Rfam assigns this 175-nucleotide RNA sequence from Acaryochloris thomasi to the family "Antisense RNA which regulates isiA expression".
Nucleotides: 175
Stems, first nucleotide, its partner, number of pairs: 133172005141166002144163002
Number, partner (000 for none) and nucleotide at each position: 001000u002000a003000u004000a005000g006000c007000c008000c009000a010000a011000c012000a013000u014000g015000g016000g017000u018000a019000a020000g021000g022000g023000g024000u025000u026000g027000a028000g029000g030000u031000u032000c033000g034000g035000u036000g037000a038000a039000a040000u041000u042000u043000g044000g045000u046000g047000u048000a049000c050000a051000u052000c053000a054000c055000c056000c057000a058000c059000g060000g061000u062000c063000g064000g065000g066000u067000c068000g069000u070000a071000g072000a073000u074000g075000c076000c077000g078000c079000c080000g081000c082000c083000g084000a085000a086000a087000c088000u089000u090000g091000c092000a093000u094000u095000g096000g097000c098000c099000g100000c101000a102000a103000a104000g105000g106000c107000c108000a109000g110000a111000c112000a113000g114000g115000c116000a117000g118000c119000a120000c121000c122000c123000a124000a125000a126000a127000a128000g129000a130000g131000u132000a133172g134171g135170u136169g137168a138000u139000g140000a141166c142165c143000c144163a145162a146000a147000a148000u149000a150000a151000a152000a153000g154000a155000a156000a157000g158000u159000u160000u161000c162145u163144u164000c165142g166141g167000c168137u169136c170135a171134c172133c173000c174000c175000a